The family of this 76-nucleotide RNA from Rattus norvegicus is "mir-9/mir-79 microRNA precursor family". A reference for the family is Lagos-Quintana et al. (2001), "Identification of novel genes coding for small expressed RNAs", Science. The sequence is in the family's curated seed alignment. NCBI's taxonomy places the organism under Eukaryota, Euteleostomi, Theria, Euarchontoglires, Rattus.
RNA sequence: GAGUUUUUACUUUCGGUUAUCUAGCUUUAUGAAGACCAAUACACUCAUACAGCUAGAUAACCAAAGAUAACAACUC
Numbered sequence: 001g002a003g004u005u006u007u008u009a010c011u012u013u014c015g016g017u018u019a020u021c022u023a024g025c026u027u028u029a030u031g032a033a034g035a036c037c038a039a040u041a042c043a044c045u046c047a048u049a050c051a052g053c054u055a056g057a058u059a060a061c062c063a064a065a066g067a068u069a070a071c072a073a074c075u076c
Base pairs, nucleotide, nucleotide: 001076002075003074004073005072007070008069009068011066012065013064015062016061017060018059019058020057021056022055023054024053025052026051028049029048030047031046032045